Shown here is a 119-nucleotide RNA sequence, a member of the family "Streptomyces-metH RNA". Rfam classes the family as a small RNA. The base pairs follow the family's consensus structure, which is taken from published work. Rfam's curators put it in the seed alignment.

RNA sequence: CCGUCCGCCACGUGGGACGACGUGCCCGCCCCGUGAGGAGGGCGGCUAGGCUGACGACGUGCGCCUCCCCCCGGAGACGCAAAGCCGACAGCCGUCGCACCCCAGGGAGCACCUCCAUG
Numbered sequence: 001c002c003g004u005c006c007g008c009c010a011c012g013u014g015g016g017a018c019g020a021c022g023u024g025c026c027c028g029c030c031c032c033g034u035g036a037g038g039a040g041g042g043c044g045g046c047u048a049g050g051c052u053g054a055c056g057a058c059g060u061g062c063g064c065c066u067c068c069c070c071c072c073g074g075a076g077a078c079g080c081a082a083a084g085c086c087g088a089c090a091g092c093c094g095u096c097g098c099a100c101c102c103c104a105g106g107g108a109g110c111a112c113c114u115c116c117a118u119g
Base pairs, nucleotide, nucleotide: 060081061080062079063078065076066075067074068073084098085097087096088095089094